About this RNA: Shown here is a 59-nucleotide RNA from Georhizobium profundi, a member of the family "terC RNA". NCBI's taxonomy places the organism under Bacteria, Pseudomonadota, Alphaproteobacteria, Hyphomicrobiales, Georhizobium. Rfam classes the family as a cis-regulatory element. Pairs were carried over by alignment from the consensus structure, which is taken from published work. A search with the family's covariance model found it, with a score of 55 bits.
RNA sequence: GCAGCGGACCGGGCCCCUCUGGCGAACUUCUCGAAGCGUCGCGAUGUCGGACCGUCUGG
Dot-bracket structure: .....((.((((.........((((.(((....)))..))))....)))).))......
Numbered sequence: 001g002c003a004g005c006g007g008a009c010c011g012g013g014c015c016c017c018u019c020u021g022g023c024g025a026a027c028u029u030c031u032c033g034a035a036g037c038g039u040c041g042c043g044a045u046g047u048c049g050g051a052c053c054g055u056c057u058g059g
Stems, first nucleotide, its partner, number of pairs: 006053002009050004022042004027036003